A member of the RNA family "Makes More Granules Regulator RNA (mmgR)" from Sphingomonas aracearum, 74 nucleotides long. Rfam's curators write: SuhB later renamed mmgR (makes more granules regulator) was a putative non-coding RNA found multiple times in the Agrobacterium tumefaciens genome and related alpha-proteobacteria. The source organism's lineage runs through Bacteria, Pseudomonadati, Pseudomonadota, Sphingomonadaceae and Sphingomonas. It scores 48 bits against the family's covariance model. Its Rfam clan is "suhB sRNA clan". The pairing is the family consensus, mapped onto this sequence.

RNA sequence: GGAGCGGGCCUUUCAGGCAUCCUCUCCUAAAACUUAUCCGGCCGCCCUUCGGGGCGGCCUUUUUUUGCUCCGGC
Numbered sequence: 001g002g003a004g005c006g007g008g009c010c011u012u013u014c015a016g017g018c019a020u021c022c023u024c025u026c027c028u029a030a031a032a033c034u035u036a037u038c039c040g041g042c043c044g045c046c047c048u049u050c051g052g053g054g055c056g057g058c059c060u061u062u063u064u065u066u067g068c069u070c071c072g073g074c
Base pairs, nucleotide, nucleotide: 008018009017010016011015040059041058042057043056044055045054046053047052